[Rfam]
RNA sequence: GUAAAAAUGAAUAUAUCUCCGUAGACAGUGGGUGUUUUACAUAAUUAGUGAAAACUAAACCUACCUAGGAGUCCGAUAUAAAGUAUAUUGGGUCUCUCUGUCUUACGGAGAGACCUUUAUUAUUAUAAAU
Numbered sequence: 001g002u003a004a005a006a007a008u009g010a011a012u013a014u015a016u017c018u019c020c021g022u023a024g025a026c027a028g029u030g031g032g033u034g035u036u037u038u039a040c041a042u043a044a045u046u047a048g049u050g051a052a053a054a055c056u057a058a059a060c061c062u063a064c065c066u067a068g069g070a071g072u073c074c075g076a077u078a079u080a081a082a083g084u085a086u087a088u089u090g091g092g093u094c095u096c097u098c099u100g101u102c103u104u105a106c107g108g109a110g111a112g113a114c115c116u117u118u119a120u121u122a123u124u125a126u127a128a129a130u
Stems, first nucleotide, its partner, number of pairs: 028064006034040002091115010
Rfam assigns this 130-nucleotide RNA from Clostridium botulinum to the family "Ribosomal protein L10 leader". Rfam's curators put it in the seed alignment. Rfam classes the family as a cis-regulatory leader. Rfam describes the family as follows. This family is a putative r-protein leader autoregulatory structure found in B. subtilis and other low-GC Gram-positive bacteria.